Shown here is a 177-nucleotide RNA sequence from Orthohepacivirus hominis, a member of the family "Hepatitis C virus (HCV) cis-acting replication element (CRE)".
It is one of the family's seed sequences.
Nucleotides: 177
Base pairs, nucleotide, nucleotide: 007050009048010047011046012045013044017040018039019038020037021036022035023034025032026031055100056099057098058097059096060095061094062085063084064083065082066081067080112142113141114140116138117137118136119135120134121133122132123131124130150174151173152172153171154170155169156168157167
Number, partner (000 for none) and nucleotide at each position: 001000c002000c003000a004000a005000u006000c007050c008000a009048a010047g011046c012045u013044g014000c015000u016000c017040g018039c019038c020037g021036g022035u023034u024000c025032g026031a027000c028000u029000u030000g031026u032025c033000u034023a035022a036021c037020u038019g039018g040017u041000u042000c043000g044013u045012a046011g047010c048009u049000g050007g051000u052000u053000a054000c055100a056099g057098c058097g059096g060095g061094g062085g063084a064083g065082a066081c067080a068000u069000a070000u071000a072000u073000c074000a075000c076000a077000g078000c079000g080067u081066g082065u083064c084063u085062c086000a087000u088000g089000c090000c091000c092000g093000g094061c095060c096059c097058c098057g099056c100055u101000g102000g103000u104000u105000g106000a107000u108000g109000u110000u111000u112142u113141g114140c115000c116138u117137a118136c119135u120134c121133c122132u123131a124130c125000u126000u127000u128000c129000c130124g131123u132122a133121g134120g135119g136118g137117u138116a139000a140114g141113c142112a143000u144000c145000u146000a147000c148000c149000u150174g151173c152172u153171c154170c155169c156168c157167a158000a159000u160000c161000g162000a163000u164000g165000a166000u167157u168156g169155g170154g171153g172152a173151g174150c175000u176000a177000a

Lineage of the source: Viruses > Orthornavirae > Kitrinoviricota > Hepaciviridae > Orthohepacivirus. The base pairs follow the family's consensus structure, which was predicted with RNAfold. On this family, see Pirakitikulr et al., Mol Cell 2016: "The Coding Region of the HCV Genome Contains a Network of Regulatory RNA Structures".